[Rfam]
Shown here is a 162-nucleotide sequence from Paenibacillus rhizosphaerae, a member of the family "FMN riboswitch aptamer (RFN element)". The organism belongs to Paenibacillus, within Bacteria. Gene Ontology term of the family: FMN binding.
RNA sequence: AUGGAUCUUCGGGGUAAGGUGAAAUUCCUGACCGGCGGUGAGCGUCUCUUCUUGUGGUAAAGACGGCGUCAAGCCCGCGACUCGCAGCUUUAGCAAUAAGGCGGCGACUGACCUGGUGGAAAUCCAGGGCCGACGGUAAAGUCCGGAUGGGAGAAGAUCAAA
Numbered sequence: 001a002u003g004g005a006u007c008u009u010c011g012g013g014g015u016a017a018g019g020u021g022a023a024a025u026u027c028c029u030g031a032c033c034g035g036c037g038g039u040g041a042g043c044g045u046c047u048c049u050u051c052u053u054g055u056g057g058u059a060a061a062g063a064c065g066g067c068g069u070c071a072a073g074c075c076c077g078c079g080a081c082u083c084g085c086a087g088c089u090u091u092a093g094c095a096a097u098a099a100g101g102c103g104g105c106g107a108c109u110g111a112c113c114u115g116g117u118g119g120a121a122a123u124c125c126a127g128g129g130c131c132g133a134c135g136g137u138a139a140a141g142u143c144c145g146g147a148u149g150g151g152a153g154a155a156g157a158u159c160a161a162a
Stems, first nucleotide, its partner, number of pairs: 004159007017029003031142002033132002035078004073130002082107004112128005134145003